The record is a 359-nucleotide part of an RNA from Haloarchaeobius iranensis, which matches "Archaeal small subunit ribosomal RNA" in Rfam. Clan: SSU clan.
[Rfam]
RNA sequence: GGCCUAAAGCGUCCGUAGCUGGCUGUGCAAGUCUGUUGGGAAAUCUGCUCGCUCAACGAGCAGGCGUCCGGCAGAAACUGUGCAGCUUGGGACCGAGCGAUCCGAGGGGUACGUCUGGGGUAGGAGUGAAAUCCCGUAAUCCUGGACGGACCACCGAUGGCGAAAGCACCUCGGAAGAUCGGAUCCGACAGUGAGGGACGAAAGCUGGGGUCACGAACCGGAUUAGAUACCCGGGUAGUCCCAGCUGUAAACGAUGCCAGUUAGGUUUGGCGCGGGCUACGAGCUCGUGCUGUGCCGCAGUGAAGACGAUAAACUGGCCGCCUGGGAAGUACGUCCGCAAGGAUGAAACUUAAAGGAAU
Number, nucleotide and partner (000 for none) at each position: 001g322002g321003c320004c000005u000006a000007a000008a000009g319010c000011g199012u198013c197014c196015g000016u193017a000018g192019c191020u190021g000022g086023c085024u084025g083026u082027g081028c080029a000030a079031g078032u075033c074034u073035g072036u071037u070038g069039g068040g067041a000042a000043a000044u000045c063046u062047g061048c060049u059050c058051g057052c000053u000054c000055a000056a000057c051058g050059a049060g048061c047062a046063g045064g000065c000066g000067u040068c039069c038070g037071g036072c035073a034074g033075a032076a000077a000078c031079u030080g028081u027082g026083c025084a024085g023086c022087u000088u000089g000090g186091g185092a184093c182094c181095g180096a179097g000098c177099g000100a000101u175102c174103c173104g172105a171106g170107g169108g152109g151110u000111a000112c148113g147114u146115c145116u144117g143118g142119g141120g000121u000122a000123g134124g133125a132126g000127u000128g000129a000130a000131a000132u125133c124134c123135c000136g000137u000138a000139a000140u000141c119142c118143u117144g116145g115146a114147c113148g112149g000150a000151c109152c108153a000154c000155c000156g000157a000158u000159g000160g167161c166162g000163a000164a000165a000166g161167c160168a000169c107170c106171u105172c104173g103174g102175a101176a000177g098178a000179u096180c095181g094182g093183a000184u092185c091186c090187g000188a000189c000190a020191g019192u018193g016194a000195g000196g014197g013198a012199c011200g000201a000202a000203a000204g245205c244206u243207g242208g241209g240210g000211u000212c000213a239214c238215g000216a000217a000218c234219c233220g232221g231222a000223u000224u000225a000226g000227a000228u000229a000230c000231c221232c220233g219234g218235g000236u000237a000238g214239u213240c209241c208242c207243a206244g205245c204246u000247g000248u000249a000250a000251a000252c000253g000254a000255u000256g318257c317258c316259a315260g314261u313262u000263a000264g296265g295266u294267u000268u292269g291270g290271c289272g288273c287274g286275g285276g284277c283278u000279a000280c000281g000282a000283g277284c276285u275286c274287g273288u272289g271290c270291u269292g268293u000294g266295c265296c264297g000298c000299a000300g307301u306302g000303a000304a000305g000306a301307c300308g000309a000310u000311a000312a000313a261314c260315u259316g258317g257318c256319c009320g003321c002322c001323u000324g351325g350326g349327a000328a000329g000330u000331a000332c000333g344334u343335c342336c341337g000338c000339a000340a000341g336342g335343a334344u333345g000346a000347a000348a000349c326350u325351u324352a000353a000354a000355g000356g000357a000358a000359u000